[Rfam]
RNA: Small nucleolar RNA SNORA53
RNA sequence: UGGAUGGUGGGUUGAAUUCUUGUUUUGUUUUGAAUAGGAGGAAAAGCUGUUUUUGUGUUUCUCCUUAUACUAUGCUCAAUCAGCUAGUCAUUCCAUGGCUUUAAGAUUACAAUGUACUUGAGUCAUUGACAUGUGAGAUCAAUAUACCUGCAUGUUAGUCUUAAGUUCUGAUAGAAAUGACAUGCAAUUAUGCUGCCAAACUUGACUAUCAGGACGUGACUGGUGUGCAGACACU
Dot-bracket structure: .(.(((.(...((((.....((((.(((..((..(.((.......(..((.(..(.(.....))..).))..).)).)..))))((((((.....)))))..).....).))))...))))......).))).).............(((((..(.((((......((((((((...(.(...(((.......)))......).)))))))))....)))).)..))))).....
Numbered sequence: 001u002g003g004a005u006g007g008u009g010g011g012u013u014g015a016a017u018u019c020u021u022g023u024u025u026u027g028u029u030u031u032g033a034a035u036a037g038g039a040g041g042a043a044a045a046g047c048u049g050u051u052u053u054u055g056u057g058u059u060u061c062u063c064c065u066u067a068u069a070c071u072a073u074g075c076u077c078a079a080u081c082a083g084c085u086a087g088u089c090a091u092u093c094c095a096u097g098g099c100u101u102u103a104a105g106a107u108u109a110c111a112a113u114g115u116a117c118u119u120g121a122g123u124c125a126u127u128g129a130c131a132u133g134u135g136a137g138a139u140c141a142a143u144a145u146a147c148c149u150g151c152a153u154g155u156u157a158g159u160c161u162u163a164a165g166u167u168c169u170g171a172u173a174g175a176a177a178u179g180a181c182a183u184g185c186a187a188u189u190a191u192g193c194u195g196c197c198a199a200a201c202u203u204g205a206c207u208a209u210c211a212g213g214a215c216g217u218g219a220c221u222g223g224u225g226u227g228c229a230g231a232c233a234c235u
Stems, first nucleotide, its partner, number of pairs: 002134001004132003008128001012121004021114004026109001027084002031082002035078001037076002046073001049070002052067001055064001057063001085103001086100005148230005155223001157221004167213008178205001180203001184196003